[Rfam]
RNA sequence: UUUAGAACUCGAGAUAUGGGAUGAACACUUAACGAUGUCUGGGCUGCAGGACAUAUUCGGACUUCUCUGUUGUUGCUAUAAUUUGGACUUGAAAACGGCAUUUUUAAAUCUUGGAUUCCACAUGAAAGUUGUAGGCCUAUGUCUUACCAUAUAUG
Numbered sequence: 001u002u003u004a005g006a007a008c009u010c011g012a013g014a015u016a017u018g019g020g021a022u023g024a025a026c027a028c029u030u031a032a033c034g035a036u037g038u039c040u041g042g043g044c045u046g047c048a049g050g051a052c053a054u055a056u057u058c059g060g061a062c063u064u065c066u067c068u069g070u071u072g073u074u075g076c077u078a079u080a081a082u083u084u085g086g087a088c089u090u091g092a093a094a095a096c097g098g099c100a101u102u103u104u105u106a107a108a109u110c111u112u113g114g115a116u117u118c119c120a121c122a123u124g125a126a127a128g129u130u131g132u133a134g135g136c137c138u139a140u141g142u143c144u145u146a147c148c149a150u151a152u153a154u155g
Base pairs, nucleotide, nucleotide: 003155004154006152007150009146011145012144013143014142015141016140017139018138019137020136022133023132025130027129028128029127035123036122037121041119042118043117045115048112049111050110051109055104060099062098063097068092072088073087074086
RNA: MIR2912 microRNA precursor family